[Rfam]
A member of the RNA family "Streptomyces RNA 3202" from Streptomyces bungoensis, 93 nucleotides long. By type it is a small RNA.
RNA sequence: CCAGGUCCCGACGCUAUCCCCCCCCGGCGCCGGGACCUUCCAGGCCGGGCCCCGGCGCCUACCCCCCCCCAGGCGCCUGGGCCCGGUCUUUUC
Numbered sequence: 001c002c003a004g005g006u007c008c009c010g011a012c013g014c015u016a017u018c019c020c021c022c023c024c025c026g027g028c029g030c031c032g033g034g035a036c037c038u039u040c041c042a043g044g045c046c047g048g049g050c051c052c053c054g055g056c057g058c059c060u061a062c063c064c065c066c067c068c069c070c071a072g073g074c075g076c077c078u079g080g081g082c083c084c085g086g087u088c089u090u091u092u093c
Stems, first nucleotide, its partner, number of pairs: 005036006012029003042089010054077007